This 170-nucleotide sequence from Panicum virgatum belongs to the Rfam family "small nucleolar RNA snoR143". For this family Rfam cites "Mining small RNA sequencing data: a new approach to identify small nucleolar RNAs in Arabidopsis" (Chen and Wu, Nucleic Acids Res, 2009). The family has 3 seed sequences and 660 matches in Rfam 15.1. The family's RNA type in Rfam is H/ACA-box small nucleolar RNA. Gene Ontology terms of the family: RNA processing and nucleolus.
RNA sequence: UUGCACCAUCGAUUUAUGUUCUGCCUUCAGUCCUUGUUGGUGGGAUAUUGUACUGGUGCACAAAGGAAAUGCUGCUCUUUGAAGUGGCGGCGGCCAGACAACCGUUGAGACAGAUCCACAGAUAAACAACUAUUCUCCUGUUGUUUGUCUACUAAAUCUGUCUCACAUUU
Numbered sequence: 001u002u003g004c005a006c007c008a009u010c011g012a013u014u015u016a017u018g019u020u021c022u023g024c025c026u027u028c029a030g031u032c033c034u035u036g037u038u039g040g041u042g043g044g045a046u047a048u049u050g051u052a053c054u055g056g057u058g059c060a061c062a063a064a065g066g067a068a069a070u071g072c073u074g075c076u077c078u079u080u081g082a083a084g085u086g087g088c089g090g091c092g093g094c095c096a097g098a099c100a101a102c103c104g105u106u107g108a109g110a111c112a113g114a115u116c117c118a119c120a121g122a123u124a125a126a127c128a129a130c131u132a133u134u135c136u137c138c139u140g141u142u143g144u145u146u147g148u149c150u151a152c153u154a155a156a157u158c159u160g161u162c163u164c165a166c167a168u169u170u
Base pairs, nucleotide, nucleotide: 002060003059004058005057006056009052013050016048017047018046019045022044025042027040028039029038107164108163109162110161111160112159113158114157124146125145126144127143128142129141130140